[Rfam]
RNA: Histone 3' UTR stem-loop
Organism: Odobenus rosmarus
RNA sequence: CAAAAGGCCCUUCUAAGGGCCACCCACGAAAUCUUCUAAAGGCCUG
Numbered sequence: 001c002a003a004a005a006g007g008c009c010c011u012u013c014u015a016a017g018g019g020c021c022a023c024c025c026a027c028g029a030a031a032u033c034u035u036c037u038a039a040a041g042g043c044c045u046g
Stems, first nucleotide, its partner, number of pairs: 006021006